[Rfam]
The family of this 60-nucleotide RNA sequence from Pseudomonas fluvialis is "Pseudomonas sRNA P36". Rfam classes the family as a small RNA. A search with the family's covariance model found it, with a score of 38 bits. For this family Rfam cites "Identification of 17 Pseudomonas aeruginosa sRNAs and prediction of sRNA-encoding genes in 10 diverse pathogens using the bioinformatic tool sRNAPredict2" (Livny et al., Nucleic Acids Res, 2006). The organism belongs to Pseudomonas, within Bacteria.

RNA sequence: CAGCCUGUUACCCACAAGCCGAGACGUAACAGAACCGGGGCUUACGGUAACGAGGCCCCG
Number, nucleotide and partner (000 for none) at each position: 001c000002a000003g000004c000005c032006u031007g030008u029009u028010a027011c026012c000013c000014a000015c000016a000017a000018g000019c000020c000021g000022a000023g000024a000025c000026g011027u010028a009029a008030c007031a006032g005033a000034a000035c000036c060037g059038g058039g057040g056041c055042u054043u000044a000045c052046g051047g000048u000049a000050a000051c046052g045053a000054g042055g041056c040057c039058c038059c037060g036